RNA sequence: CUCUUAUCAAGAGAGGCGGAGGGAAUAGGCCCUGCGAUGCCCGGCAACCUGCAAGCGAUCCUGCUUGCAAAGGUGCUAAAUCCUACAGACCGGCGAUAGGUCUGGCAGAUAAGAG
Number, nucleotide and partner (000 for none) at each position: 001c115002u114003c113004u112005u111006a110007u109008c108009a000010a000011g000012a000013g042014a000015g041016g040017c039018g000019g000020a000021g032022g031023g030024a000025a000026u085027a084028g083029g082030c023031c022032c021033u000034g000035c000036g000037a000038u000039g017040c016041c015042c013043g077044g076045c075046a074047a000048c073049c072050u069051g068052c067053a066054a065055g064056c000057g000058a000059u000060c000061c000062u000063g000064c055065u054066u053067g052068c051069a050070a000071a000072g049073g048074u046075g045076c044077u043078a000079a000080a000081u107082c029083c028084u027085a026086c104087a103088g102089a101090c100091c099092g000093g000094c000095g000096a000097u000098a000099g091100g090101u089102c088103u087104g086105g000106c000107a081108g008109a007110u006111a005112a004113g003114a002115g001
About this RNA:
Shown here is a 115-nucleotide RNA from Planomicrobium sp. CPCC 101110, a member of the family "SAM riboswitch aptamer (S box leader)". Gene Ontology term of the family: regulation of gene expression.